[Rfam]
RNA sequence: GUGUGCUUAUGAAGAUCGCUAACAAAAGAGCACUUAGCUCAGUUGGCGUUCAGAUGCUCCCACAC
Numbered sequence: 001g002u003g004u005g006c007u008u009a010u011g012a013a014g015a016u017c018g019c020u021a022a023c024a025a026a027a028g029a030g031c032a033c034u035u036a037g038c039u040c041a042g043u044u045g046g047c048g049u050u051c052a053g054a055u056g057c058u059c060c061c062a063c064a065c
Stems, first nucleotide, its partner, number of pairs: 001065005014051002017048007029039003
Source information: This 65-nucleotide sequence from Zapornia atra belongs to the Rfam family "Selenocysteine insertion sequence 1". By type it is a cis-regulatory element. Rfam links the family to the GO term selenocysteine incorporation. The incorporation of selenocysteine into a protein sequence is directed by an in-frame UGA codon (usually a stop codon) within the coding region of the mRNA. Selenoprotein mRNAs contain a conserved secondary structure in the 3' UTR that is required for the distinction of UGA stop from UGA selenocysteine. The selenocysteine insertion sequence (SECIS) is around 60 nt in length and adopts a hairpin structure which is sufficiently well-defined and conserved to act as a computational screen for selenoprotein genes. The source organism's lineage runs through Eukaryota, Vertebrata, Tetrapoda, Saurischia and Zapornia.